[Rfam]
RNA sequence: CCCCUUUGAAACCGCGCAGAACCUGCCUAUAUUCAAGUCGUCCCUUCGGGGACUAUGGGCAUAAACGCGCAUGUAAUAAGCGGAUCGGACCCGGGGGCGGUACCCGGCGGCUCCACCAAUAACCCUCGUUGGGGGAUCAUGGGGCCGAAACAGGAUCGACGAACGUGUAAAGAUGUAGCUUUGUCCCGGUGAGAUACCACCGUUAUCGGUUCACAUUGCAUAAUUGCCAACGACAAUCAUGCUCCGGUUGCAGUUGCUGCGUAAGCGGCAACAAGACCGAAAUCUUAAGCCCUUGCGCCUAGCAGCGUAAGGCGGGGUUCGCAGGCACCUGGCAACAGAAGCCUGCACU
Numbered sequence: 001c002c003c004c005u006u007u008g009a010a011a012c013c014g015c016g017c018a019g020a021a022c023c024u025g026c027c028u029a030u031a032u033u034c035a036a037g038u039c040g041u042c043c044c045u046u047c048g049g050g051g052a053c054u055a056u057g058g059g060c061a062u063a064a065a066c067g068c069g070c071a072u073g074u075a076a077u078a079a080g081c082g083g084a085u086c087g088g089a090c091c092c093g094g095g096g097g098c099g100g101u102a103c104c105c106g107g108c109g110g111c112u113c114c115a116c117c118a119a120u121a122a123c124c125c126u127c128g129u130u131g132g133g134g135g136a137u138c139a140u141g142g143g144g145c146c147g148a149a150a151c152a153g154g155a156u157c158g159a160c161g162a163a164c165g166u167g168u169a170a171a172g173a174u175g176u177a178g179c180u181u182u183g184u185c186c187c188g189g190u191g192a193g194a195u196a197c198c199a200c201c202g203u204u205a206u207c208g209g210u211u212c213a214c215a216u217u218g219c220a221u222a223a224u225u226g227c228c229a230a231c232g233a234c235a236a237u238c239a240u241g242c243u244c245c246g247g248u249u250g251c252a253g254u255u256g257c258u259g260c261g262u263a264a265g266c267g268g269c270a271a272c273a274a275g276a277c278c279g280a281a282a283u284c285u286u287a288a289g290c291c292c293u294u295g296c297g298c299c300u301a302g303c304a305g306c307g308u309a310a311g312g313c314g315g316g317g318u319u320c321g322c323a324g325g326c327a328c329c330u331g332g333c334a335a336c337a338g339a340a341g342c343c344u345g346c347a348c349u
Stems, first nucleotide, its partner, number of pairs: 040053005057186005067179002069176004081165002085162003091107005108147007187202004193212002196210003315330004321346006
Shown here is a 349-nucleotide RNA from Salipiger profundus, a member of the family "Alphaproteobacteria transfer-messenger RNA". Gene Ontology term of the family: RNA catabolic process. NCBI's taxonomy places the organism under Bacteria, Pseudomonadati, Alphaproteobacteria, Roseobacteraceae, Salipiger. The family's RNA type in Rfam is non-coding RNA gene. Rfam describes the family as follows. Bacterial tmRNA, also known as 10Sa RNA or SsrA, is named for its dual tRNA and mRNA-like properties. Its role is to liberate the mRNA from a stalled ribosome. To accomplish this part of the tmRNA is used as a reading frame that ends in a translation stop signal. The base pairs follow the family's consensus structure, which is taken from published work.